[Rfam]
RNA sequence: CCCUUUUCUCUGGGGUCCAGUUUUCCCAGGAAUCCCUUCACUCACGAGAAAGGGGGAUUCCUGGAAAUACUGAUCUUGGGGGCGAGGC
Numbered sequence: 001c002c003c004u005u006u007u008c009u010c011u012g013g014g015g016u017c018c019a020g021u022u023u024u025c026c027c028a029g030g031a032a033u034c035c036c037u038u039c040a041c042u043c044a045c046g047a048g049a050a051a052g053g054g055g056g057a058u059u060c061c062u063g064g065a066a067a068u069a070c071u072g073a074u075c076u077u078g079g080g081g082g083c084g085a086g087g088c
Base pairs, nucleotide, nucleotide: 018072019071020070021069023067024066026064027063028062029061030060031059032058033057034056035055036054037053
Dot-bracket structure: .................((((.((.((((((((((((...............)))))))))))).)).))))................
A member of the RNA family "mir-145 microRNA precursor family" from Xiphophorus maculatus, 88 nucleotides long. A search with the family's covariance model found it, with a score of 77 bits. The source organism's lineage runs through Eukaryota, Clupeocephala, Percomorphaceae, Ovalentaria and Xiphophorus. The literature on the family includes a 2003 paper in Mol Cancer Res by Michael et al., "Reduced accumulation of specific microRNAs in colorectal neoplasia".